[Rfam]
RNA sequence: AUAGGCCAUUCACCCACUAGAAAUAACAGCCAAAGCGGUAGAAGCUUUGGCUGUUAUUUCUAGUGGGUGAAUGGCCUAU
Numbered sequence: 001a002u003a004g005g006c007c008a009u010u011c012a013c014c015c016a017c018u019a020g021a022a023a024u025a026a027c028a029g030c031c032a033a034a035g036c037g038g039u040a041g042a043a044g045c046u047u048u049g050g051c052u053g054u055u056a057u058u059u060c061u062a063g064u065g066g067g068u069g070a071a072u073g074g075c076c077u078a079u
Base pairs, nucleotide, nucleotide: 001079002078003077004076005075006074007073008072010070011069013067014066015065016064020060021059022058023057024056025055026054027053028052029051030050031049032048033047

Rfam assigns this 79-nucleotide RNA from Octopus sinensis to the family "mir-192/215 microRNA precursor family". The match comes from Rfam's covariance-model search (54 bits). The literature on the family includes a 2001 paper in Cell by Ambros, "microRNAs: tiny regulators with great potential". Rfam 15.1 lists 810 matches to the family in 628 species. Rfam's curators write: This family represents the human microRNA (miRNA) precursors mir-192 and mir-215. Animal miRNAs are transcribed as ~70nt precursors and subsequently processed by the Dicer enzyme to give a ~22nt product. In this case the mature sequence comes from the 5' arm of the precursor. Its family is annotated with miRNA-mediated post-transcriptional gene silencing and RISC complex in the Gene Ontology.